[Rfam]
RNA sequence: CGAGUCGAGUGCCGCGAGGCCUCUGCCCGGCGGACCCUGACGCACUUCCCCAGCGCCAGGUUUCGCUCGGGCAGAGACCUAGCGGUAUUCGUCCAUCCAG
Numbered sequence: 001c002g003a004g005u006c007g008a009g010u011g012c013c014g015c016g017a018g019g020c021c022u023c024u025g026c027c028c029g030g031c032g033g034a035c036c037c038u039g040a041c042g043c044a045c046u047u048c049c050c051c052a053g054c055g056c057c058a059g060g061u062u063u064c065g066c067u068c069g070g071g072c073a074g075a076g077a078c079c080u081a082g083c084g085g086u087a088u089u090c091g092u093c094c095a096u097c098c099a100g
Stems, first nucleotide, its partner, number of pairs: 010087006018079002021076010031065004036060004041055003

Source information
Shown here is a 100-nucleotide sequence from Skermania sp. ID1734, a member of the family "mraW RNA". It scores 64 bits against the family's covariance model.